[Rfam]
RNA: pan motif
RNA sequence: UGGAUAGUAUCGUAGAACUAUACCAUUAUUAUGAAAAUGUAAUUAUAACUUAAUAGGUAUUGCUCUGAGCCUUGAAGGACCGAGACAAAGU
Numbered sequence: 001u002g003g004a005u006a007g008u009a010u011c012g013u014a015g016a017a018c019u020a021u022a023c024c025a026u027u028a029u030u031a032u033g034a035a036a037a038u039g040u041a042a043u044u045a046u047a048a049c050u051u052a053a054u055a056g057g058u059a060u061u062g063c064u065c066u067g068a069g070c071c072u073u074g075a076a077g078g079a080c081c082g083a084g085a086c087a088a089a090g091u
Stems, first nucleotide, its partner, number of pairs: 001025003004021005010016002060088003063084003067080001070078002